[Rfam]
RNA: U4 spliceosomal RNA
Organism: Hansenula ciferrii
RNA sequence: AUCCUUAUGCAAGGGAAUUACGCAUAUCAGUGAGGAUUCGUCCGAGAUUGUGUUUUUGCUGGUUGAAAACUUUAACCACGACCGCUCCUGUUUGUCAAUAGACCUUUUGGUCUGACUCUUAGGGAAUUUUUGGAAACUUUUCUUUGAU
Numbered sequence: 001a002u003c004c005u006u007a008u009g010c011a012a013g014g015g016a017a018u019u020a021c022g023c024a025u026a027u028c029a030g031u032g033a034g035g036a037u038u039c040g041u042c043c044g045a046g047a048u049u050g051u052g053u054u055u056u057u058g059c060u061g062g063u064u065g066a067a068a069a070c071u072u073u074a075a076c077c078a079c080g081a082c083c084g085c086u087c088c089u090g091u092u093u094g095u096c097a098a099u100a101g102a103c104c105u106u107u108u109g110g111u112c113u114g115a116c117u118c119u120u121a122g123g124g125a126a127u128u129u130u131u132g133g134a135a136a137c138u139u140u141u142c143u144u145u146g147a148u
Stems, first nucleotide, its partner, number of pairs: 020053005026048003034043003086124005094116004